A member of the RNA family "MIR397 microRNA precursor family" from Nyssa sinensis, 88 nucleotides long. Rfam 15.1 lists 496 matches to the family in 218 species. Rfam links the family to the GO terms RISC complex and miRNA-mediated post-transcriptional gene silencing. A search with the family's covariance model found it, with a score of 56 bits. On this family, see Mica et al., BMC Genomics 2009: "High throughput approaches reveal splicing of primary microRNA transcripts and tissue specific expression of mature microRNAs in Vitis vinifera". Lineage of the source: Eukaryota > Embryophyta > Magnoliopsida > Pentapetalae > Nyssa.

RNA sequence: AACAAAAACAUGAUUGAUUGCAGCGCUGGUGAAAUCAACAAGACAUAGUAAUAGGAUUUCAUCAACGCUGCACUCAAUGAUGUUUCUU
Number, nucleotide and partner (000 for none) at each position: 001a000002a000003c000004a000005a000006a085007a084008a083009c082010a081011u080012g000013a078014u077015u076016g075017a074018u000019u072020g071021c070022a069023g068024c067025g066026c000027u064028g063029g000030u061031g060032a059033a058034a057035u056036c055037a000038a000039c000040a000041a000042g000043a000044c000045a000046u000047a000048g000049u000050a000051a000052u000053a000054g000055g036056a035057u034058u033059u032060c031061a030062u000063c028064a027065a000066c025067g024068c023069u022070g021071c020072a019073c000074u017075c016076a015077a014078u013079g000080a011081u010082g009083u008084u007085u006086c000087u000088u000